[Rfam]
RNA sequence: GACUUUGGGUAAUCGAGCACAGCAAUUGUUGUGUUAGGAAGGUCCAUGCUCGCACGAGCUGCGAUGCUCGUAGUGUUUGUGCUCGCUGAAACGAUAAGGCGGGGCACCGAUUUUCGGUGACGGCGGAAAAAGCGGCUACGGCUUUGGCUAUGCCCUAGUAUUCCUGAAAAGUGCCACAGUGACGAAGCAGGAUUGGAAACAAUUCUGAUGGAACGCGGUAAACCCCUCAAGCGGUAAACCCAAACUACGGUCGGGGAGCUUUGGAUAACAAAUUGAAGUGAUUCCAGGGGAGUGUCUUUGACGCUGAGAUAGAUGAUUACCACUGUAUAAUUUGUGCCUGACGAUUAUACUUUGACAAAACAUGGCCUACAGAA
Numbered sequence: 001g002a003c004u005u006u007g008g009g010u011a012a013u014c015g016a017g018c019a020c021a022g023c024a025a026u027u028g029u030u031g032u033g034u035u036a037g038g039a040a041g042g043u044c045c046a047u048g049c050u051c052g053c054a055c056g057a058g059c060u061g062c063g064a065u066g067c068u069c070g071u072a073g074u075g076u077u078u079g080u081g082c083u084c085g086c087u088g089a090a091a092c093g094a095u096a097a098g099g100c101g102g103g104g105c106a107c108c109g110a111u112u113u114u115c116g117g118u119g120a121c122g123g124c125g126g127a128a129a130a131a132g133c134g135g136c137u138a139c140g141g142c143u144u145u146g147g148c149u150a151u152g153c154c155c156u157a158g159u160a161u162u163c164c165u166g167a168a169a170a171g172u173g174c175c176a177c178a179g180u181g182a183c184g185a186a187g188c189a190g191g192a193u194u195g196g197a198a199a200c201a202a203u204u205c206u207g208a209u210g211g212a213a214c215g216c217g218g219u220a221a222a223c224c225c226c227u228c229a230a231g232c233g234g235u236a237a238a239c240c241c242a243a244a245c246u247a248c249g250g251u252c253g254g255g256g257a258g259c260u261u262u263g264g265a266u267a268a269c270a271a272a273u274u275g276a277a278g279u280g281a282u283u284c285c286a287g288g289g290g291a292g293u294g295u296c297u298u299u300g301a302c303g304c305u306g307a308g309a310u311a312g313a314u315g316a317u318u319a320c321c322a323c324u325g326u327a328u329a330a331u332u333u334g335u336g337c338c339u340g341a342c343g344a345u346u347a348u349a350c351u352u353u354g355a356c357a358a359a360a361c362a363u364g365g366c367c368u369a370c371a372g373a374a
Stems, first nucleotide, its partner, number of pairs: 004374003007370001008321007016035006040368003044365005050234004054071006077230003081226001082103006104121001105119006122225002125164004134154003140149003171223002173219003188207008239255003259289007291305005325350007
RNA: Bacterial RNase P class B
Organism: Limosilactobacillus coleohominis